[Rfam]
RNA sequence: AAAAAGGCCCUUUUCAGGGCCACAUAUAUUUCAUAUAUUAUCAUC
Numbered sequence: 001a002a003a004a005a006g007g008c009c010c011u012u013u014u015c016a017g018g019g020c021c022a023c024a025u026a027u028a029u030u031u032c033a034u035a036u037a038u039u040a041u042c043a044u045c
Base pairs, nucleotide, nucleotide: 006021007020008019009018010017011016
Shown here is a 45-nucleotide RNA sequence from Trichoplusia ni, a member of the family "Histone 3' UTR stem-loop". Pairs were carried over by alignment from the consensus structure, which is taken from published work. The family's RNA type in Rfam is cis-regulatory element. The source organism's lineage runs through Eukaryota, Ecdysozoa, Altocrustacea, Noctuidae and Trichoplusia. The family has 50 seed sequences and 44,596 matches in Rfam 15.1. Rfam links the family to the GO term mRNA 3'-end processing by stem-loop binding and cleavage.